[Rfam]
RNA sequence: GGUGAUCCACACCAGUGUUUCGGACAGCGGUUCGAUUCCGCUCAGCUCCAUUCCCCCGCUCCCGGUUCCGCCGGAAGCCACUUCGGGGCUGCAAUGGUUUCGACGGGGCAUGAGGAGGGUGACUGAAGCCUGCUCGGUGAGAGCAAACCCGUAACAGCGAACAACAUCGUUCGUUUCUCCCGUCAAGCCGCCCCUGUGGCUGCCUGA
Numbered sequence: 001g002g003u004g005a006u007c008c009a010c011a012c013c014a015g016u017g018u019u020u021c022g023g024a025c026a027g028c029g030g031u032u033c034g035a036u037u038c039c040g041c042u043c044a045g046c047u048c049c050a051u052u053c054c055c056c057c058g059c060u061c062c063c064g065g066u067u068c069c070g071c072c073g074g075a076a077g078c079c080a081c082u083u084c085g086g087g088g089c090u091g092c093a094a095u096g097g098u099u100u101c102g103a104c105g106g107g108g109c110a111u112g113a114g115g116a117g118g119g120u121g122a123c124u125g126a127a128g129c130c131u132g133c134u135c136g137g138u139g140a141g142a143g144c145a146a147a148c149c150c151g152u153a154a155c156a157g158c159g160a161a162c163a164a165c166a167u168c169g170u171u172c173g174u175u176u177c178u179c180c181c182g183u184c185a186a187g188c189c190g191c192c193c194c195u196g197u198g199g200c201u202g203c204c205u206g207a
Stems, first nucleotide, its partner, number of pairs: 001124003005120001016110003020106003026042005043091007
This 207-nucleotide RNA sequence from Cyanobium sp. FGCU52 belongs to the Rfam family "permuted transfer-messenger RNA".
Bacterial tmRNA, also known as 10Sa RNA or SsrA, is named for its dual tRNA and mRNA-like properties.
The sequence is in the family's curated seed alignment.
Taxonomically the source falls in Cyanobium (Bacteria, Cyanobacteriota, Synechococcales, Prochlorococcaceae).
The base pairs follow the family's consensus structure, which is taken from published work.